[Rfam]
RNA sequence: UCGGUCCCGGUUCACGUCGCACCAGCAGGUGGGACGACCCGGCACC
Numbered sequence: 001u002c003g004g005u006c007c008c009g010g011u012u013c014a015c016g017u018c019g020c021a022c023c024a025g026c027a028g029g030u031g032g033g034a035c036g037a038c039c040c041g042g043c044a045c046c
Stems, first nucleotide, its partner, number of pairs: 003046003007042004015036004020031004
Shown here is a 46-nucleotide RNA sequence from Streptomyces sp. TAA040, a member of the family "L31-Actinobacteria ribosomal protein leader". It is one of the family's seed sequences. The base pairs follow the family's consensus structure, which is taken from published work.